[Rfam]
RNA sequence: UUCCUACCAAAUCCUAUCUCCACCUUCACAUGGCGACCGCUGGAAGCUCUUUUUUAGUGAAAAGCUGCAGACGGGGAAGG
Number, nucleotide and partner (000 for none) at each position: 001u000002u000003c000004c000005u000006a000007c000008c000009a000010a000011a000012u000013c080014c079015u078016a000017u076018c075019u074020c073021c000022a000023c033024c032025u000026u000027c000028a000029c000030a000031u000032g024033g023034c000035g000036a000037c000038c000039g000040c000041u000042g000043g000044a000045a066046g065047c064048u063049c000050u061051u060052u000053u059054u000055u000056a000057g000058u000059g053060a051061a050062a000063a048064g047065c046066u045067g000068c000069a000070g000071a000072c000073g020074g019075g018076g017077a000078a015079g014080g013
Record summary
This 80-nucleotide RNA from Hermetia illucens belongs to the Rfam family "drz-agam-1 ribozyme". Taxonomically the source falls in Hermetia (Eukaryota, Metazoa, Protostomia, Hermetiinae). Its family is annotated with catalytic activity in the Gene Ontology. Pairs were carried over by alignment from the consensus structure, which is taken from published work. It scores 39 bits against the family's covariance model.